A member of the RNA family "mir-8517 microRNA precursor family" from Plutella xylostella, 108 nucleotides long. Pairs were carried over by alignment from the consensus structure, which was predicted with RNAalifold. Gene Ontology terms of the family: miRNA-mediated post-transcriptional gene silencing and RISC complex.
RNA sequence: UUACACGACGUUUUAACUAAUAAACUGUUUUGUCCCUCUCCGACCAUCAACAAUUUGUUAUUUGACAGAGAGGGACAAAACAGUUUAUUAGUUAAAACGUCCUGUAUC
Numbered sequence: 001u002u003a004c005a006c007g008a009c010g011u012u013u014u015a016a017c018u019a020a021u022a023a024a025c026u027g028u029u030u031u032g033u034c035c036c037u038c039u040c041c042g043a044c045c046a047u048c049a050a051c052a053a054u055u056u057g058u059u060a061u062u063u064g065a066c067a068g069a070g071a072g073g074g075a076c077a078a079a080a081c082a083g084u085u086u087a088u089u090a091g092u093u094a095a096a097a098c099g100u101c102c103u104g105u106a107u108c
Base pairs, nucleotide, nucleotide: 002106003105004104005103011097012096013095014094015093016092017091018090019089020088021087022086023085024084025083026082027081028080029069030068031067032066033065034064049059050058051057052056